The record is a 35-nucleotide RNA from Tupaia belangeri, which matches "Iron response element I" in Rfam. The base pairs follow the family's consensus structure, which is taken from published work. The family's RNA type in Rfam is cis-regulatory element. The source organism's lineage runs through Eukaryota, Eumetazoa, Gnathostomata, Sarcopterygii and Tupaia belangeri. The family has 62 seed sequences and 6,829 matches in Rfam 15.1. On this family, see Nichol and Winzerling, Insect Biochem Mol Biol 2002: "Structured RNA upstream of insect cap distal iron responsive elements enhances iron regulatory protein-mediated control of translation". Its family is annotated with response to iron ion in the Gene Ontology.

RNA sequence: CAGUUUCCUGCUUCAGCAGUGCUUGAGCGGAACCG
Numbered sequence: 001c002a003g004u005u006u007c008c009u010g011c012u013u014c015a016g017c018a019g020u021g022c023u024u025g026a027g028c029g030g031a032a033c034c035g
Stems, first nucleotide, its partner, number of pairs: 001035001003033003007030002010028001012027005017021001